[Rfam]
RNA sequence: CUCCCCGAUAUAGCUUUAGGGCUAGCGUCGAGGUUAGCGUAAUGGAGGUAGAGCACUAAAUGUAUGAUGGCCCCACCUAGGGGUACUGAAUGCAAUUAAACUCCGAAUGCCAUUAUUGUAUACUCGGCAGUCAGUACAUGGGUGAUAAGGUCCAUGCACGUAAGGGAAACAGCCCAGAUCAUCAGCUAAGGUCCCAAAAUUUAUGCUAAGUGUGUAAGGAUGUGAAGUCGCUUAGACAGCUAGGAGGUUGGCUUAGAAGCAGCCACCCUUUAAAGAGUGCGUAACAGCUCACUAGUCGAGUAACUUUGCGCCGAAAAUGUACCGGGGCUAAGCAUAAUACCGAAGCUAUGGGUUUUGCACAGCAAUGUGUAGGGCGGUAGGGGAGCGUUCUAACAGGGAUGAAGGUAGACCGUGAGGACUGCUGGACUGGUUAGAAGUGAGAAU
Numbered sequence: 001c002u003c004c005c006c007g008a009u010a011u012a013g014c015u016u017u018a019g020g021g022c023u024a025g026c027g028u029c030g031a032g033g034u035u036a037g038c039g040u041a042a043u044g045g046a047g048g049u050a051g052a053g054c055a056c057u058a059a060a061u062g063u064a065u066g067a068u069g070g071c072c073c074c075a076c077c078u079a080g081g082g083g084u085a086c087u088g089a090a091u092g093c094a095a096u097u098a099a100a101c102u103c104c105g106a107a108u109g110c111c112a113u114u115a116u117u118g119u120a121u122a123c124u125c126g127g128c129a130g131u132c133a134g135u136a137c138a139u140g141g142g143u144g145a146u147a148a149g150g151u152c153c154a155u156g157c158a159c160g161u162a163a164g165g166g167a168a169a170c171a172g173c174c175c176a177g178a179u180c181a182u183c184a185g186c187u188a189a190g191g192u193c194c195c196a197a198a199a200u201u202u203a204u205g206c207u208a209a210g211u212g213u214g215u216a217a218g219g220a221u222g223u224g225a226a227g228u229c230g231c232u233u234a235g236a237c238a239g240c241u242a243g244g245a246g247g248u249u250g251g252c253u254u255a256g257a258a259g260c261a262g263c264c265a266c267c268c269u270u271u272a273a274a275g276a277g278u279g280c281g282u283a284a285c286a287g288c289u290c291a292c293u294a295g296u297c298g299a300g301u302a303a304c305u306u307u308g309c310g311c312c313g314a315a316a317a318u319g320u321a322c323c324g325g326g327g328c329u330a331a332g333c334a335u336a337a338u339a340c341c342g343a344a345g346c347u348a349u350g351g352g353u354u355u356u357g358c359a360c361a362g363c364a365a366u367g368u369g370u371a372g373g374g375c376g377g378u379a380g381g382g383g384a385g386c387g388u389u390c391u392a393a394c395a396g397g398g399a400u401g402a403a404g405g406u407a408g409a410c411c412g413u414g415a416g417g418a419c420u421g422c423u424g425g426a427c428u429g430g431u432u433a434g435a436a437g438u439g440a441g442a443a444u
Stems, first nucleotide, its partner, number of pairs: 001385006011024005026130001027128006036121001039116007051104001052102002057098003061094004069086001070084005134159002137156007164175003179351004184347003190341003199338001201337006218312002222309007230301002239296005245269003250264003270274001275290001279288002352375008386439001388436007396428002404423005410417002
Dot-bracket structure: ((((((....(((((....))))).(((((((...(..(((((((.....(((...(((.((((....((((((.....))))).)....)))).)))..)).).....)))))))....).)))))).)...((.(((((((......))))))).))....(((......)))...((((.(((...(((......(.((((((...........((..(((((((.((.......(((((.(((..(((.........)))..)))(...)(...((......)).).)))))...)).))))))).))...................))))))))))...)))))))((((((((........))))))))....))))))(.(((((((.((......(((((.((....)).)))))...)).)))))))..).....
RNA: Bacterial large subunit ribosomal RNA, nucleotides 851 to 1294
Organism: Spiroplasma eriocheiris